Singlet oxygen resistance RNA X: a 73-nucleotide RNA sequence from Roseovarius aestuarii. Taxonomically the source falls in Roseovarius (Bacteria, Pseudomonadati, Alphaproteobacteria, Rhodobacterales). On this family, see Peng et al., RNA Biol 2016: "Regulation of a polyamine transporter by the conserved 3' UTR-derived sRNA SorX confers resistance to singlet oxygen and organic hydroperoxides in Rhodobacter sphaeroides". Pairs were carried over by alignment from the consensus structure. From the family's description: SorX (RSs2461)like SorY is a singlet oxygen induced sRNA that counteracts oxidative stress by targeting mRNA for a transporter in Rhodobacter. Rfam classes the family as a small RNA. Rfam links the family to the GO term response to photooxidative stress.
[Rfam]
RNA sequence: ACCCGUCGCAUAUGCGGACUUUCAUAUGCACCUCCCUGUUGGACUGACUCCGGUGCGAUCCGGGGUCUUUUUU
Numbered sequence: 001a002c003c004c005g006u007c008g009c010a011u012a013u014g015c016g017g018a019c020u021u022u023c024a025u026a027u028g029c030a031c032c033u034c035c036c037u038g039u040u041g042g043a044c045u046g047a048c049u050c051c052g053g054u055g056c057g058a059u060c061c062g063g064g065g066u067c068u069u070u071u072u073u
Base pairs, nucleotide, nucleotide: 008029009028010027011026012025013024014023046067047066048065049064050063051062052061053060